[Rfam]
RNA sequence: GCCACCGAGGAGCGUUGCGACCCGGACCAUCGGAGUCCGGGCCAGGCUCGGCGGCGGGGUCGACACGACAACGGCGCUCACUCACG
Numbered sequence: 001g002c003c004a005c006c007g008a009g010g011a012g013c014g015u016u017g018c019g020a021c022c023c024g025g026a027c028c029a030u031c032g033g034a035g036u037c038c039g040g041g042c043c044a045g046g047c048u049c050g051g052c053g054g055c056g057g058g059g060u061c062g063a064c065a066c067g068a069c070a071a072c073g074g075c076g077c078u079c080a081c082u083c084a085c086g
Stems, first nucleotide, its partner, number of pairs: 002054002005051004021041006